[Rfam]
RNA sequence: AGGGUGUUACGAUGUUGGAGAAAUCCUAGUCUAGCCCACGGCGAGUUUUUAACUUGC
Numbered sequence: 001a002g003g004g005u006g007u008u009a010c011g012a013u014g015u016u017g018g019a020g021a022a023a024u025c026c027u028a029g030u031c032u033a034g035c036c037c038a039c040g041g042c043g044a045g046u047u048u049u050u051a052a053c054u055u056g057c
Stems, first nucleotide, its partner, number of pairs: 002037004011031003017026003041057006
The record is a 57-nucleotide sequence from Pediococcus stilesii, which matches "L17 ribosomal protein downstream element" in Rfam. The source organism's lineage runs through Bacteria, Bacillati, Bacilli, Lactobacillaceae and Pediococcus.